[Rfam]
RNA: c-di-AMP riboswitch aptamer (ydaO/yuaA leader)
Organism: Fictibacillus arsenicus
RNA sequence: GGCUUUAGAUCGCUGAAUUUACAGUCAAUUUCUUUAUUUUAAGAAGACUGUGAAACGGGGGAACCAAUCUUUUGGGGUGAAUUUUGCAAGCAGCAAAAAGGGAUACUCCAUUCCCUAAUCCGACAGCUAACCCCGUAAGCGUCAUGUCACUGGAGAG
Numbered sequence: 001g002g003c004u005u006u007a008g009a010u011c012g013c014u015g016a017a018u019u020u021a022c023a024g025u026c027a028a029u030u031u032c033u034u035u036a037u038u039u040u041a042a043g044a045a046g047a048c049u050g051u052g053a054a055a056c057g058g059g060g061g062a063a064c065c066a067a068u069c070u071u072u073u074g075g076g077g078u079g080a081a082u083u084u085u086g087c088a089a090g091c092a093g094c095a096a097a098a099a100g101g102g103a104u105a106c107u108c109c110a111u112u113c114c115c116u117a118a119u120c121c122g123a124c125a126g127c128u129a130a131c132c133c134c135g136u137a138a139g140c141g142u143c144a145u146g147u148c149a150c151u152g153g154a155g156a157g
Base pairs, nucleotide, nucleotide: 011141012140013139014138018054019053020052021051022050023049024048025047026046055136056135057134058133059132060131065074066073075121076120077119083097084096085095086094100115101114102113103112